A member of the RNA family "XIST RNA A repeat" from Crocuta crocuta, 41 nucleotides long.
Pairs were carried over by alignment from the consensus structure, which was predicted with CMfinder.
A search with the family's covariance model found it, with a score of 41 bits.
Taxonomically the source falls in Crocuta (Eukaryota, Eumetazoa, Chordata, Craniata).
It is annotated as a small RNA.
RNA sequence: UCGCCCAACGGGGCUGUGGAUACCUGCGUUUUAACAAUUUU
Numbered sequence: 001u002c003g004c005c006c007a008a009c010g011g012g013g014c015u016g017u018g019g020a021u022a023c024c025u026g027c028g029u030u031u032u033a034a035c036a037a038u039u040u041u
Stems, first nucleotide, its partner, number of pairs: 003014004017026003